[Rfam]
RNA sequence: CGAGCCGGCCGGGCGGCCGCGUCGGGGCCGUCAGGUCCCGCCGAGGAAAGUCCGGACUCCACAGGGCAGGGUGGUGGGUAACGCCCACCCGGGGUGACCCGCGGGACAGUGCCACAGAAAGCAGACCGCCUCCCGCGUUCGCGCGGGCGGUAAGGGUGAAACGGUGGUGUAAGAGACCACCAGCGCCCCAGGUGACUGGGGCGGCUCGGUAAACCCCACCCGGAGCAAGGUCAGACAGGGAGCGUUCGAGGGCGGCCCGCCCGAGCUCCCGGGUAGACCGCUGGAGACCACCGGCAACGGUGGCCGUAGAUGGAUGGUCGCCGGUCCCGGUCCGCCGGGAACCACAGAAUCCGGCUUACAGGCCGGCUCGUCCC
Numbered sequence: 001c002g003a004g005c006c007g008g009c010c011g012g013g014c015g016g017c018c019g020c021g022u023c024g025g026g027g028c029c030g031u032c033a034g035g036u037c038c039c040g041c042c043g044a045g046g047a048a049a050g051u052c053c054g055g056a057c058u059c060c061a062c063a064g065g066g067c068a069g070g071g072u073g074g075u076g077g078g079u080a081a082c083g084c085c086c087a088c089c090c091g092g093g094g095u096g097a098c099c100c101g102c103g104g105g106a107c108a109g110u111g112c113c114a115c116a117g118a119a120a121g122c123a124g125a126c127c128g129c130c131u132c133c134c135g136c137g138u139u140c141g142c143g144c145g146g147g148c149g150g151u152a153a154g155g156g157u158g159a160a161a162c163g164g165u166g167g168u169g170u171a172a173g174a175g176a177c178c179a180c181c182a183g184c185g186c187c188c189c190a191g192g193u194g195a196c197u198g199g200g201g202c203g204g205c206u207c208g209g210u211a212a213a214c215c216c217c218a219c220c221c222g223g224a225g226c227a228a229g230g231u232c233a234g235a236c237a238g239g240g241a242g243c244g245u246u247c248g249a250g251g252g253c254g255g256c257c258c259g260c261c262c263g264a265g266c267u268c269c270c271g272g273g274u275a276g277a278c279c280g281c282u283g284g285a286g287a288c289c290a291c292c293g294g295c296a297a298c299g300g301u302g303g304c305c306g307u308a309g310a311u312g313g314a315u316g317g318u319c320g321c322c323g324g325u326c327c328c329g330g331u332c333c334g335c336c337g338g339g340a341a342c343c344a345c346a347g348a349a350u351c352c353g354g355c356u357u358a359c360a361g362g363c364c365g366g367c368u369c370g371u372c373c374c
Base pairs, nucleotide, nucleotide: 001370002369003368004367005366006365007364008363009362010361011359012322013321014320015319016318017317018316020043021042023040024039025038026037027036028035048357049356050355052354053353054352055351056350057225058224059223060222064258065257066256067255069221070220071219072218073217074088075087076086077085078084089103090101091100092099093098104216105215109214110213111210112209113208126155127154128151129150130149132147133146134145135144136143137142163181164180165179166178167177168176183205184203185202186201187200188199189198190197191196229279230278231277232276238270239269240268241267242266243265250262251261252260253259286305288303289302290301291300292299293298
Bacterial RNase P class A: a 374-nucleotide sequence from Jiangella aurantiaca. Ribonuclease P (RNase P) is a ubiquitous endoribonuclease, found in archaea, bacteria and eukarya as well as chloroplasts and mitochondria.